The record is a 38-nucleotide sequence from Rahnella aquatilis, which matches "JUMPstart RNA" in Rfam. The family's RNA type in Rfam is cis-regulatory element.
[Rfam]
RNA sequence: UGGCAAAUUGGUAGCCGUAAACCAGGGGCGGUAGCAUA
Numbered sequence: 001u002g003g004c005a006a007a008u009u010g011g012u013a014g015c016c017g018u019a020a021a022c023c024a025g026g027g028g029c030g031g032u033a034g035c036a037u038a
Stems, first nucleotide, its partner, number of pairs: 008025005
The family's consensus secondary structure is taken from published work.